Annotation: Retrovirus direct repeat 1 (dr1): a 90-nucleotide RNA sequence from Rhinopomastus cyanomelas. Its family is annotated with viral genome replication in the Gene Ontology. The match comes from Rfam's covariance-model search (60 bits). The source organism's lineage runs through Eukaryota, Opisthokonta, Amniota, Theropoda and Rhinopomastus. Rfam 15.1 lists 106 matches to the family in 14 species. Rfam's curators write: This family represents the direct repeat 1 (dr1) element commonly found in the 3' UTR of Avian sarcoma, Rous sarcoma and Avian leukosis viruses (Alpharetroviruses and Avian type C retroviruses). dr1 is required for efficient viral replication and is thought to be involved in genomic RNA packaging although this may not be its only role.
RNA sequence: UGUAACGGGGCAGGGCUUAACCAAGAGGACAUAGCAUGUAUAGGCAGAAUGCGGGCAUUUCGGGAUGUACGCGAUUAGGGUCCUCUCGGA
Numbered sequence: 001u002g003u004a005a006c007g008g009g010g011c012a013g014g015g016c017u018u019a020a021c022c023a024a025g026a027g028g029a030c031a032u033a034g035c036a037u038g039u040a041u042a043g044g045c046a047g048a049a050u051g052c053g054g055g056c057a058u059u060u061c062g063g064g065a066u067g068u069a070c071g072c073g074a075u076u077a078g079g080g081u082c083c084u085c086u087c088g089g090a
Base pairs, nucleotide, nucleotide: 001012002011003010024086025085026084027083028082029081030080041077042076043075045073051068052067053066